[Rfam]
Rfam assigns this 91-nucleotide RNA sequence to the family "skipping-rope RNA".
RNA sequence: GGCUUUUGAGGUGAAAACAGCGUCCUCACGCGCCGCAUGCUUCAUGCAAUGGGCAAAAGAGAUGUCGGAUGUGACGCUCCGACCAAAAGCA
Numbered sequence: 001g002g003c004u005u006u007u008g009a010g011g012u013g014a015a016a017a018c019a020g021c022g023u024c025c026u027c028a029c030g031c032g033c034c035g036c037a038u039g040c041u042u043c044a045u046g047c048a049a050u051g052g053g054c055a056a057a058a059g060a061g062a063u064g065u066c067g068g069a070u071g072u073g074a075c076g077c078u079c080c081g082a083c084c085a086a087a088a089g090c091a
Base pairs, nucleotide, nucleotide: 002090003089004088005087006086007085008084011029012028013027014026020077021076022075023074024073031059032054033053034052064083065082066081067080068079
The sequence is in the family's curated seed alignment.
By type it is a small RNA.